Notes:
The family of this 430-nucleotide part of an RNA from Schizosaccharomyces japonicus is "Eukaryotic large subunit ribosomal RNA". Taxonomically the source falls in Schizosaccharomyces japonicus (Eukaryota, Opisthokonta, Fungi, Schizosaccharomycetaceae). It scores 3308 bits against the family's covariance model.
RNA sequence: UGACCUCAGAUCAGGUAGGACUACGCGCUGAACUUAAGCAUAUCAAUAAGCGCAGGACAAGAAAAUAACCAUGAUUCCCCUAGUAACGGCGAGUGAAGCGGGAAAAGCUCAAAUUUGAAAUCUGGCAAAGUUUUAUUCUUUGCCCGAGUUGUAAUUUCAAGAAGCUGCUUUGAGUAUUGCUACGUCGGUCUAAGUUCCUUGGAACAGGACGUCAGAGAGGGUGAGAACCCCGUCUUUGGCCGAUGUGCUUUGCCAUAUAAAGCGCUUUCUAAGAGUCGAGUUGUUUGGGAAUGCAGCUCUAAAUGGGUGGUGAAUUUCAUCUAAAGCUAAAUAUUGGCGAGAGACCGAUAGCGAACAAGUAGAGUGAUCGAAAGAUGAAAAGAACUUUGAAAAGAGAGUUAAAUAGUACGUGAAAUUGCUGAAGGGGAAG
Number, nucleotide and partner (000 for none) at each position: 001u000002g000003a000004c000005c000006u000007c000008a000009g000010a000011u000012c000013a000014g000015g000016u000017a000018g000019g000020a000021c000022u000023a000024c055025g053026c052027g051028c050029u049030g000031a000032a000033c000034u000035u042036a041037a000038g000039c000040a000041u036042a035043u000044c000045a000046a000047u000048a000049a029050g028051c027052g026053c025054a000055g024056g000057a000058c000059a000060a000061g000062a000063a000064a000065a072066u071067a000068a000069c000070c000071a066072u065073g000074a000075u000076u103077c102078c101079c100080c000081u000082a000083g000084u000085a000086a094087c093088g000089g000090c000091g000092a000093g087094u086095g000096a000097a000098g000099c000100g079101g078102g077103a076104a000105a000106a328107g327108c326109u325110c000111a000112a156113a155114u154115u153116u000117g000118a150119a149120a000121u147122c146123u000124g144125g143126c142127a141128a140129a139130g138131u000132u000133u000134u000135a000136u000137u000138c130139u129140u128141u127142g126143c125144c124145c000146g122147a121148g000149u119150u118151g000152u000153a115154a114155u113156u112157u000158c000159a000160a000161g269162a268163a266164g265165c264166u000167g000168c262169u261170u260171u259172g000173a000174g253175u252176a251177u000178u000179g248180c247181u000182a000183c000184g244185u243186c242187g241188g240189u239190c238191u000192a000193a000194g210195u000196u209197c208198c207199u206200u000201g000202g000203a000204a000205c000206a199207g198208g197209a196210c194211g000212u000213c217214a000215g000216a000217g213218a000219g000220g230221g229222u000223g000224a000225g000226a000227a000228c000229c221230c220231c000232g000233u000234c000235u000236u000237u000238g190239g189240c188241c187242g186243a185244u184245g000246u000247g180248c179249u000250u000251u176252g175253c174254c000255a000256u000257a000258u000259a171260a170261a169262g168263c000264g165265c164266u163267u000268u162269c161270u000271a000272a000273g000274a000275g000276u000277c000278g299279a298280g297281u296282u295283g294284u293285u000286u000287g000288g000289g000290a000291a000292u000293g284294c283295a282296g281297c280298u279299c278300u000301a000302a000303a000304u000305g322306g321307g320308u319309g318310g000311u000312g000313a000314a000315u000316u000317u000318c309319a308320u307321c306322u305323a000324a000325a109326g108327c107328u106329a000330a000331a000332u000333a000334u000335u000336g000337g000338c000339g000340a000341g000342a000343g000344a000345c000346c000347g000348a000349u000350a000351g000352c000353g000354a000355a000356c000357a000358a000359g000360u000361a000362g369363a368364g000365u000366g000367a000368u363369c362370g000371a000372a000373a000374g000375a000376u000377g000378a000379a000380a000381a000382g000383a000384a000385c396386u395387u394388u393389g000390a000391a000392a000393a388394g387395a386396g385397a000398g000399u000400u000401a000402a000403a000404u000405a000406g000407u000408a000409c000410g000411u000412g000413a000414a000415a000416u000417u000418g000419c000420u000421g000422a000423a000424g000425g000426g000427g000428a000429a000430g000